[Rfam]
Nucleotides: 134
Base pairs, nucleotide, nucleotide: 004126005125006124007123010039011038012037013036015034016033017032018031019030020029041064042063043062044061045060046059047058049056050055067119068118069117070116071115073112074111075110076109077108079107080106081105082104083102084099085098086097087096088095
Number, partner (000 for none) and nucleotide at each position: 001000g002000u003000u004126g005125u006124g007123a008000u009000u010039g011038c012037a013036g014000u015034g016033a017032c018031u019030g020029a021000u022000g023000u024000g025000g026000u027000u028000u029020u030019c031018g032017g033016u034015u035000u036013c037012u038011g039010u040000g041064g042063a043062g044061g045060a046059a047058g048000g049056g050055u051000u052000g053000c054000a055050a056049c057000g058047c059046u060045u061044u062043u063042u064041c065000a066000a067119g068118a069117g070116a071115a072000u073112g074111a075110c076109c077108g078000c079107g080106c081105g082104u083102c084099c085098g086097c087096u088095u089000a090000a091000a092000u093000c094000g095088a096087a097086g098085c099084g100000u101000u102083g103000a104082a105081c106080g107079c108077c109076g110075g111074u112073c113000u114000u115071u116070u117069c118068u119067c120000a121000u122000u123007u124006c125005a126004c127000u128000u129000a130000a131000g132000a133000u134000a